Overview
The record is a 64-nucleotide RNA sequence from Myotis lucifugus, which matches "mir-9242 microRNA precursor family" in Rfam. Rfam 15.1 lists 940 matches to the family in 18 species.
RNA sequence: GGUCUCCCUCUCUGGGGCAAUCGAUCGUGAGGCUCCCAGAUCGAUUGCCCUGCAGAGGGAGGCC
Numbered sequence: 001g002g003u004c005u006c007c008c009u010c011u012c013u014g015g016g017g018c019a020a021u022c023g024a025u026c027g028u029g030a031g032g033c034u035c036c037c038a039g040a041u042c043g044a045u046u047g048c049c050c051u052g053c054a055g056a057g058g059g060a061g062g063c064c
Base pairs, nucleotide, nucleotide: 001064002063003062004061005060006059007058008057009056010055011054013052014051015050016049017048018047019046020045021044022043023042024041025040026039029036